[Rfam]
RNA sequence: AAAAAGGGUGUUUGCUACUUAAUAGCACAUAAGCCGUAUGGCUUGUGGGGUAUGGUAAUCAAGACAUACCCAACACAAAAUUUUUGUAUUUGUGAGGCUGUUUUAUCGUCUUUGUGCAAAAACGCCUCC
Numbered sequence: 001a002a003a004a005a006g007g008g009u010g011u012u013u014g015c016u017a018c019u020u021a022a023u024a025g026c027a028c029a030u031a032a033g034c035c036g037u038a039u040g041g042c043u044u045g046u047g048g049g050g051u052a053u054g055g056u057a058a059u060c061a062a063g064a065c066a067u068a069c070c071c072a073a074c075a076c077a078a079a080a081u082u083u084u085u086g087u088a089u090u091u092g093u094g095a096g097g098c099u100g101u102u103u104u105a106u107c108g109u110c111u112u113u114g115u116g117c118a119a120a121a122a123c124g125c126c127u128c129c
Stems, first nucleotide, its partner, number of pairs: 008076005013027005028047008048071007095127004100123005108117002110114001

The record is a 129-nucleotide RNA sequence from Ignelater luminosus, which matches "U11 spliceosomal RNA" in Rfam. It scores 90 bits against the family's covariance model. Its Rfam clan is "U1 clan". Gene Ontology terms of the family: mRNA 5'-splice site recognition, U11 snRNP and pre-mRNA 5'-splice site binding. Rfam classes the family as a spliceosomal small nuclear RNA.